[Rfam]
RNA sequence: UUGCAAUGAUGAAUACCUUUUAGCUUUUUUUCUGGCAUCUCUAAUGUUAGGGUGGGUGUUUAAGUACUCUCCACUCGAUGAAUACAACUUUUGACAAAAACCUGAGC
Numbered sequence: 001u002u003g004c005a006a007u008g009a010u011g012a013a014u015a016c017c018u019u020u021u022a023g024c025u026u027u028u029u030u031u032c033u034g035g036c037a038u039c040u041c042u043a044a045u046g047u048u049a050g051g052g053u054g055g056g057u058g059u060u061u062a063a064g065u066a067c068u069c070u071c072c073a074c075u076c077g078a079u080g081a082a083u084a085c086a087a088c089u090u091u092u093g094a095c096a097a098a099a100a101c102c103u104g105a106g107c
Stems, first nucleotide, its partner, number of pairs: 051075004

Small nucleolar RNA snR48: a 107-nucleotide sequence from Lachancea fermentati. NCBI's taxonomy places the organism under Eukaryota, Opisthokonta, Dikarya, Saccharomycotina, Lachancea. The family is grouped with related families in Rfam's "SNORD60 clan".